About this RNA: Shown here is an 89-nucleotide sequence from Parasporobacterium paucivorans, a member of the family "c-di-GMP-I riboswitch aptamer". Pairs were carried over by alignment from the consensus structure, which is taken from published work. Gene Ontology term of the family: cyclic-di-GMP binding. The source organism's lineage runs through Bacteria, Clostridia, Lachnospiraceae, Parasporobacterium and Parasporobacterium paucivorans.

RNA sequence: AAUUGAAAAAGGCAAAACCUUUCGAAAGAAGGUGACGCAAAGCCAUGAGUCUACAGCAGUUUUACUGCCAGGAUCGUCAGACCGCCACG
Numbered sequence: 001a002a003u004u005g006a007a008a009a010a011g012g013c014a015a016a017a018c019c020u021u022u023c024g025a026a027a028g029a030a031g032g033u034g035a036c037g038c039a040a041a042g043c044c045a046u047g048a049g050u051c052u053a054c055a056g057c058a059g060u061u062u063u064a065c066u067g068c069c070a071g072g073a074u075c076g077u078c079a080g081a082c083c084g085c086c087a088c089g
Stems, first nucleotide, its partner, number of pairs: 012038002017033004022029002042082001044080001046079003049074003056068004